[Rfam]
Nucleotides: 254
Stems, first nucleotide, its partner, number of pairs: 007233004016077001018075002090105006120156005190225005196219003200213004236252005
Number, partner (000 for none) and nucleotide at each position: 001000u002000g003000a004000u005000c006000c007233g008232g009231u010230g011000g012000c013000u014000c015000g016077g017000a018075c019074g020000c021000c022000c023000u024000c025000c026000u027000c028000c029000a030000a031000g032000a033000a034000a035000c036000a037000c038000g039000a040000g041000a042000g043000g044000g045000a046000a047000a048000g049000a050000a051000a052000c053000c054000u055000c056000a057000c058000c059000a060000a061000g062000c063000c064000c065000c066000a067000c068000c069000c070000c071000u072000c073000c074019c075018g076000c077016c078000c079000a080000c081000g082000g083000c084000g085000c086000a087000u088000g089000c090105u091104c092103a093102c094101u095100c096000u097000c098000g099000c100095g101094a102093g103092u104091g105090a106000a107000c108000a109000u110000c111000a112000c113000c114000a115000a116000c117000u118000c119000a120156g121155c122154u123153g124152g125000a126000u127000u128000c129000g130000g131000c132000a133000c134000c135000g136000g137000u138000u139000g140000c141000c142000u143000g144000c145000c146000c147000u148000a149000c150000g151000c152124u153123c154122a155121g156120c157000g158000c159000g160000a161000c162000a163000g164000c165000a166000c167000a168000c169000g170000c171000c172000c173000c174000c175000c176000c177000c178000c179000a180000g181000a182000c183000a184000u185000g186000c187000g188000a189000c190225g191224g192223c193222c194221c195000c196219c197218g198217c199000c200213g201212g202211g203210a204000c205000u206000g207000c208000a209000a210203u211202c212201c213200c214000g215000a216000g217198g218197c219196g220000a221194g222193g223192g224191c225190c226000u227000g228000a229000c230010c231009a232008c233007c234000a235000a236252g237251g238250a239249a240248g241000u242000u243000a244000g245000g246000c247000c248240c249239u250238u251237c252236c253000c254000g
Annotation
Shown here is a 254-nucleotide RNA sequence from Streptomyces humidus, a member of the family "Streptomyces sRNA 4677". A search with the family's covariance model found it, with a score of 212 bits. From the family's description: Located in the intergenic region between anti-sigma factor SCO4677 gene and a putative regulatory protein gene SCO4676. scr4677 expression requires the SCO4677 activity and scr4677 sRNA itself seem to affect the levels of the SCO4676-associated transcripts. It is annotated as a small RNA. The pairing is the family consensus, mapped onto this sequence. Taxonomically the source falls in Streptomyces (Bacteria, Bacillati, Actinomycetes, Kitasatosporales).